[Rfam]
RNA: Group II catalytic intron D1-D4-2
RNA sequence: GAAGGAUUGCGGCCCUUCGGAGUCGUCCUGUGGGGGAAGGCUUCAAACCACCUCAUGCCGCGUUAGCUGAAGACUGUCGUGGUGAGCGAUGAGGAAAAGGCAUCCAAGAGGUGUCAGGU
Numbered sequence: 001g002a003a004g005g006a007u008u009g010c011g012g013c014c015c016u017u018c019g020g021a022g023u024c025g026u027c028c029u030g031u032g033g034g035g036g037a038a039g040g041c042u043u044c045a046a047a048c049c050a051c052c053u054c055a056u057g058c059c060g061c062g063u064u065a066g067c068u069g070a071a072g073a074c075u076g077u078c079g080u081g082g083u084g085a086g087c088g089a090u091g092a093g094g095a096a097a098a099g100g101c102a103u104c105c106a107a108g109a110g111g112u113g114u115c116a117g118g119u
Stems, first nucleotide, its partner, number of pairs: 001018005019044006026037004049118001051094006057083002060080003064076003099115006